[Rfam]
RNA sequence: CUCUUAAGUGAUGACAUGACAUAUGGAGUGUCACAUCAUCACGCUCAAUCACUAACAUGUCAUUGAAGGCGAUGACGUGACAAUGAGGUGUCUGUAACAAGGCAUGAUGACGUGACAUUCCGUUUGUCAUGUCAUCGUUUAACGAAA
Numbered sequence: 001c002u003c004u005u006a007a008g009u010g011a012u013g014a015c016a017u018g019a020c021a022u023a024u025g026g027a028g029u030g031u032c033a034c035a036u037c038a039u040c041a042c043g044c045u046c047a048a049u050c051a052c053u054a055a056c057a058u059g060u061c062a063u064u065g066a067a068g069g070c071g072a073u074g075a076c077g078u079g080a081c082a083a084u085g086a087g088g089u090g091u092c093u094g095u096a097a098c099a100a101g102g103c104a105u106g107a108u109g110a111c112g113u114g115a116c117a118u119u120c121c122g123u124u125u126g127u128c129a130u131g132u133c134a135u136c137g138u139u140u141a142a143c144g145a146a147a
Base pairs, nucleotide, nucleotide: 002144004142005141006140007139008138009137010136011135012134013133014132015131016130017129018128019127020126021125023123024122025121026120027119028118029117030116031115032114033113034112036110037109038108039107040106041105043103044102045101049097051095052094055091056090057089058088059076060075061074062073063072
RNA: MIR4371 microRNA precursor family